RNA sequence: GGCUGGUCCAAAGGUAGUGAGUUAUCUCAAUUGGCUGUUCACAAUCAGUUAUAGAUCAAACUCCUUGUUCUACUCUUUCCUCCCAUCUCACUACUGCAUGUGACUAGUCUUAA
Numbered sequence: 001g002g003c004u005g006g007u008c009c010a011a012a013g014g015u016a017g018u019g020a021g022u023u024a025u026c027u028c029a030a031u032u033g034g035c036u037g038u039u040c041a042c043a044a045u046c047a048g049u050u051a052u053a054g055a056u057c058a059a060a061c062u063c064c065u066u067g068u069u070c071u072a073c074u075c076u077u078u079c080c081u082c083c084c085a086u087c088u089c090a091c092u093a094c095u096g097c098a099u100g101u102g103a104c105u106a107g108u109c110u111u112a113a
Base pairs, nucleotide, nucleotide: 001109002108003107004106005105006104007103008102010101014097015096016092017091018090019089020088021087044074047071048070